[Rfam]
RNA sequence: GGCCACCUUCGGGGGGCUUCACCAUAGGCAGAGUAAUACUUUGUCGUACAAGCAAACGGAAGACAGAAA
Dot-bracket structure: ((((.(((...)))))))........(((((((.....)))))))........................
RNA: L2-Alphaproteobacteria ribosomal protein leader